Rfam assigns this 94-nucleotide RNA sequence from Jaculus jaculus to the family "Small nucleolar RNA SNORD111".

RNA sequence: UAGCUUGAAGUGAUGACUCUUAAUUUCAUGUCUCUUCAUCUUCACUGACAUUUUCUCUGGAGAUGGUUUCUUCCAUACUGAUCUGAUCGUGCUA
Numbered sequence: 001u002a003g004c005u006u007g008a009a010g011u012g013a014u015g016a017c018u019c020u021u022a023a024u025u026u027c028a029u030g031u032c033u034c035u036u037c038a039u040c041u042u043c044a045c046u047g048a049c050a051u052u053u054u055c056u057c058u059g060g061a062g063a064u065g066g067u068u069u070c071u072u073c074c075a076u077a078c079u080g081a082u083c084u085g086a087u088c089g090u091g092c093u094a
Base pairs, nucleotide, nucleotide: 001094002093003092004091